RNA sequence: UUGACCGAUACCGAUGGCUGGUCACCACCAGCGGGGAGUUACCUGCUUUCCCUUUUAAAAAGGAAAGCAGGCGGCAGCACAGAGUGCUUCACCGUUCCCCCAUACCUCAACCGCAUCCGCUCCGGUGCACAGGUAUCGGUCA
Number, nucleotide and partner (000 for none) at each position: 001u000002u142003g141004a140005c139006c138007g137008a136009u135010a134011c133012c132013g000014a000015u000016g000017g000018c031019u030020g029021g028022u027023c000024a000025c000026c000027a022028c021029c020030a019031g018032c000033g099034g098035g097036g000037a000038g000039u000040u000041a000042c071043c070044u069045g068046c067047u066048u065049u064050c063051c062052c000053u000054u000055u000056u000057a000058a000059a000060a000061a000062g051063g050064a049065a048066a047067g046068c045069a044070g043071g042072c094073g093074g092075c000076a088077g087078c086079a085080c084081a000082g000083a000084g080085u079086g078087c077088u076089u000090c000091a000092c074093c073094g072095u000096u000097c035098c034099c033100c000101c000102a000103u000104a000105c000106c000107u000108c000109a000110a000111c000112c000113g000114c000115a000116u000117c000118c000119g000120c000121u000122c000123c000124g000125g000126u000127g000128c000129a000130c000131a000132g012133g011134u010135a009136u008137c007138g006139g005140u004141c003142a002
The family of this 142-nucleotide RNA from Saezia sanguinis is "EFASI RNA".